[Rfam]
RNA sequence: CUCUUAUUCAGAGCAAUGGAGACUAAGGAUCUGCGAAAUUGCGGCAACCCCUAAUAUGGAAGGUGCCUUACCCAAGCGAGUGAAAUCGAACAAUAAGAG
Dot-bracket structure: ((((((((....(((((...((.....[.))......)))))((((.((((......))..))))))....]....(((......)))...))))))))
Numbered sequence: 001c002u003c004u005u006a007u008u009c010a011g012a013g014c015a016a017u018g019g020a021g022a023c024u025a026a027g028g029a030u031c032u033g034c035g036a037a038a039u040u041g042c043g044g045c046a047a048c049c050c051c052u053a054a055u056a057u058g059g060a061a062g063g064u065g066c067c068u069u070a071c072c073c074a075a076g077c078g079a080g081u082g083a084a085a086u087c088g089a090a091c092a093a094u095a096a097g098a099g
Stems, first nucleotide, its partner, number of pairs: 001099008013042005021031002028072001043067004048063002050059002077088003
The record is a 99-nucleotide sequence from Catenibacillus scindens, which matches "SAM riboswitch aptamer (S box leader)" in Rfam. Gene Ontology term of the family: regulation of gene expression.